[Rfam]
RNA: raiA RNA
Organism: Halanaerobacter jeridensis
RNA sequence: UUUACUUAGGUCUGUGGUUGAAAGUCGAUGCUAGUCGCAGGCAAAGCGAUCCACGUAAGGUAGCAAAGGCUACUGAUCAUGGUGCGGCUUAGAAGUGAGACCUACCUAGAUAUACUAGAGAGAAUAAGAGUAGAAGCAAAAUGUUUCUGCAAAGUUCCAGUGGGCGAGUGUGGGGGCAAAAACCAGGUCAGCUAAGUAAG
Numbered sequence: 001u002u003u004a005c006u007u008a009g010g011u012c013u014g015u016g017g018u019u020g021a022a023a024g025u026c027g028a029u030g031c032u033a034g035u036c037g038c039a040g041g042c043a044a045a046g047c048g049a050u051c052c053a054c055g056u057a058a059g060g061u062a063g064c065a066a067a068g069g070c071u072a073c074u075g076a077u078c079a080u081g082g083u084g085c086g087g088c089u090u091a092g093a094a095g096u097g098a099g100a101c102c103u104a105c106c107u108a109g110a111u112a113u114a115c116u117a118g119a120g121a122g123a124a125u126a127a128g129a130g131u132a133g134a135a136g137c138a139a140a141a142u143g144u145u146u147c148u149g150c151a152a153a154g155u156u157c158c159a160g161u162g163g164g165c166g167a168g169u170g171u172g173g174g175g176g177c178a179a180a181a182a183c184c185a186g187g188u189c190a191g192c193u194a195a196g197u198a199a200g
Base pairs, nucleotide, nucleotide: 001200002199003198004197005196006195007194008193009192012191013190014189015185016184017183018182019181028171029170030169031041033089034088035087036086037085038084039083050082051081055077058074059073062071063070064069080178101164102163103162104161105160106118107117108116109115122157123156124155125154131149132148135145136144137143